[Rfam]
RNA sequence: AUGAAAAUAGCGUGAGAUAACAGUUUGUUAACCGAAGAAGCAAUGAUUUAGUUCCCACACGACUACAUCAGAAACUUUCAGGUACCCGCAGCGCUAUAGGACG
Dot-bracket structure: ......(((((((.....((((...)))).(((((..(((...((((...................))))....))))).))).......)))))))......
The family of this 103-nucleotide sequence from Clostridium thailandense is "Glycine riboswitch aptamer". Clan: Glycine riboswitch clan. Taxonomically the source falls in Clostridium (Bacteria, Bacillati, Bacillota, Eubacteriales). It scores 44 bits against the family's covariance model.